Background
The family of this 179-nucleotide RNA sequence from Sediminibacillus albus is "Lysine riboswitch aptamer". The source organism's lineage runs through Bacteria, Bacilli, Caryophanales, Bacillaceae and Sediminibacillus. The base pairs follow the family's consensus structure, which is taken from published work.
RNA sequence: CGGUGAGGUAGAGGUGCAGACAGGAUCAGUAUCCAGCUGGAGGAUGACAACAGCGAUGGUUGGUGAAAGGCCUGGCUGCCGAAGCGUAAGGGAAGGUCACCCCCUUAUUGCUGGUAUUUUUCCUAACAGGAAUUAUACUGUCAUGUCUGGAUAGAAUAGCAUGAAGGGCUACUGAUCGA
Numbered sequence: 001c002g003g004u005g006a007g008g009u010a011g012a013g014g015u016g017c018a019g020a021c022a023g024g025a026u027c028a029g030u031a032u033c034c035a036g037c038u039g040g041a042g043g044a045u046g047a048c049a050a051c052a053g054c055g056a057u058g059g060u061u062g063g064u065g066a067a068a069g070g071c072c073u074g075g076c077u078g079c080c081g082a083a084g085c086g087u088a089a090g091g092g093a094a095g096g097u098c099a100c101c102c103c104c105u106u107a108u109u110g111c112u113g114g115u116a117u118u119u120u121u122c123c124u125a126a127c128a129g130g131a132a133u134u135a136u137a138c139u140g141u142c143a144u145g146u147c148u149g150g151a152u153a154g155a156a157u158a159g160c161a162u163g164a165a166g167g168g169c170u171a172c173u174g175a176u177c178g179a
Stems, first nucleotide, its partner, number of pairs: 007173005016079004021074004033063007083112003086108007113139005120132004141164006